This 97-nucleotide RNA sequence from Ureibacillus manganicus belongs to the Rfam family "Guanidine-I riboswitch aptamer". Its family is annotated with regulation of gene expression in the Gene Ontology. A search with the family's covariance model found it, with a score of 82 bits. This family represents a conserved RNA structure found upstream of the ykkC and yxkD genes in Bacillus subtilis and related genes in other bacteria.
RNA sequence: AAAAAAGUUUUCUAGGGUUCCGCUCAUUUGAGGUCUGGACCGAGAGAAAACGCACGUGUGACAACGUGUAACACGGAAGGAUAAAAGCCUGGGAGAU
Numbered sequence: 001a002a003a004a005a006a007g008u009u010u011u012c013u014a015g016g017g018u019u020c021c022g023c024u025c026a027u028u029u030g031a032g033g034u035c036u037g038g039a040c041c042g043a044g045a046g047a048a049a050a051c052g053c054a055c056g057u058g059u060g061a062c063a064a065c066g067u068g069u070a071a072c073a074c075g076g077a078a079g080g081a082u083a084a085a086a087g088c089c090u091g092g093g094a095g096a097u
Stems, first nucleotide, its partner, number of pairs: 007051006015041002020038002022035001023032003054069003057064001072092001074095001078090003